[Rfam]
The record is a 188-nucleotide part of an RNA from candidate division MSBL1 archaeon SCGC-AAA382C18, which matches "Archaeal large subunit ribosomal RNA" in Rfam. Lineage of the source: Archaea > Methanobacteriati > Methanobacteriota > candidate division MSBL1.
RNA sequence: GGAUGCCUGAGGGUAAGGUAGCUUCAGUACGAGAGGAACGAGCUGCCGGCGCCUCUAGUGUACCGGUUGUCCGAUCGGGCAUUGCCGGGUAGCCACGCGCCAACCGAUAAGGCCUGAAAGCAUCUAAGGCUGAAGCGGUACCCGAAAAUUGGCAACCGAUCUUGGUUUUCCUCAGAAAGGUUAUCCUU
Numbered sequence: 001g002g003a004u005g006c007c008u009g010a011g012g013g014u015a016a017g018g019u020a021g022c023u024u025c026a027g028u029a030c031g032a033g034a035g036g037a038a039c040g041a042g043c044u045g046c047c048g049g050c051g052c053c054u055c056u057a058g059u060g061u062a063c064c065g066g067u068u069g070u071c072c073g074a075u076c077g078g079g080c081a082u083u084g085c086c087g088g089g090u091a092g093c094c095a096c097g098c099g100c101c102a103a104c105c106g107a108u109a110a111g112g113c114c115u116g117a118a119a120g121c122a123u124c125u126a127a128g129g130c131u132g133a134a135g136c137g138g139u140a141c142c143c144g145a146a147a148a149u150u151g152g153c154a155a156c157c158g159a160u161c162u163u164g165g166u167u168u169u170c171c172u173c174a175g176a177a178a179g180g181u182u183a184u185c186c187u188u
Base pairs, nucleotide, nucleotide: 001157002156004154005153006152007151011143012142013141014140017047018046019045020044021043022042023041024040048101049100050099051098052097056095058093063088064087065086066085067084068081069080070079071078072077104138105137106136111131112130113129114128115127167183170180171179
A search with the family's covariance model found it, with a score of 2720 bits.